RNA sequence: CGUUCCCUUGCUGGAGAGAGGCCGCCGCAGCGACGCGGCCCACCGAAGGAGCAAGCCCCCCUGCAUUGCAGCGGCGGGGUGAAUCUCUCAGGUAAAGAGGACAGCAGGGCAAAU
Dot-bracket structure: .....((((((((......((((((.........)))))).(((((..(((...(((((................)))))....))))).)))........)))))))).....

Shown here is a 114-nucleotide RNA sequence from Paenacidovorax caeni, a member of the family "Glycine riboswitch aptamer". The source organism's lineage runs through Bacteria, Pseudomonadati, Pseudomonadota, Burkholderiales and Paenacidovorax. Rfam describes the family as follows. This family represents the bacterial glycine riboswitch. Its family is annotated with glycine biosynthetic process in the Gene Ontology.